[Rfam]
RNA sequence: GUGCAAAUGAUGUAAACUUUUUUUAUCCCUGACUAAAGUGAUGUUUCCAAAGGAACCACUGAUGCAC
Numbered sequence: 001g002u003g004c005a006a007a008u009g010a011u012g013u014a015a016a017c018u019u020u021u022u023u024u025a026u027c028c029c030u031g032a033c034u035a036a037a038g039u040g041a042u043g044u045u046u047c048c049a050a051a052g053g054a055a056c057c058a059c060u061g062a063u064g065c066a067c
Base pairs, nucleotide, nucleotide: 001067002066003065004064005063